[Rfam]
RNA sequence: AGAUACUAUAGAGGAGCCUUCUAUAAAAGUAAUUAGUUGAGCAGGUAUGCAAGGAAACUGACGAAAGGAUAAGAAGGCCGAAUCGUAAUAUUAGGCAUAAUAUUAUGAUGGCAACAAUUCAUAACAGUUUGUUGUUCUUUGGAAUUUUCCAUUGGCGCUAUAGUCUAC
Numbered sequence: 001a002g003a004u005a006c007u008a009u010a011g012a013g014g015a016g017c018c019u020u021c022u023a024u025a026a027a028a029g030u031a032a033u034u035a036g037u038u039g040a041g042c043a044g045g046u047a048u049g050c051a052a053g054g055a056a057a058c059u060g061a062c063g064a065a066a067g068g069a070u071a072a073g074a075a076g077g078c079c080g081a082a083u084c085g086u087a088a089u090a091u092u093a094g095g096c097a098u099a100a101u102a103u104u105a106u107g108a109u110g111g112c113a114a115c116a117a118u119u120c121a122u123a124a125c126a127g128u129u130u131g132u133u134g135u136u137c138u139u140u141g142g143a144a145u146u147u148u149c150c151a152u153u154g155g156c157g158c159u160a161u162a163g164u165c166u167a168c
Base pairs, nucleotide, nucleotide: 006163007162008161009160010159011158016078017077018076019075020074021073022071023070024069033061034060035059036058037057038056082109083108084107085106086105087104088103089102090101091100092099093098110136111135112134113133114132115131116130117129119127140151141150142149143148

Shown here is a 168-nucleotide sequence from Mycoplasmopsis phocirhinis, a member of the family "Lysine riboswitch aptamer".
A search with the family's covariance model found it, with a score of 76 bits.